[Rfam]
The record is a 92-nucleotide RNA from Trichloromonas acetexigens, which matches "Selenocysteine transfer RNA" in Rfam. Taxonomically the source falls in Trichloromonas (Bacteria, Thermodesulfobacteriota, Desulfuromonadia, Desulfuromonadales). Clan: tRNA clan. A reference for the family is Lowe and Eddy (1997), "tRNAscan-SE: a program for improved detection of transfer RNA genes in genomic sequence", Nucleic Acids Res. It scores 74 bits against the family's covariance model.
RNA sequence: GGGAGCAGGAAGUAGUCUGGUGACGCUCCCGGUCUUCAAAACCGGUGGGGGGCGUAUCCCGUCCCUGGUGAGUUCGAUUCUCAUUUGCUCCC
Numbered sequence: 001g002g003g004a005g006c007a008g009g010a011a012g013u014a015g016u017c018u019g020g021u022g023a024c025g026c027u028c029c030c031g032g033u034c035u036u037c038a039a040a041a042c043c044g045g046u047g048g049g050g051g052g053c054g055u056a057u058c059c060c061g062u063c064c065c066u067g068g069u070g071a072g073u074u075c076g077a078u079u080c081u082c083a084u085u086u087g088c089u090c091c092c
Base pairs, nucleotide, nucleotide: 001092002091003090004089005088006087007086008085009084012027015024016023017022029045030044031043032042033041048066049065050064051063052062069083070082071081072080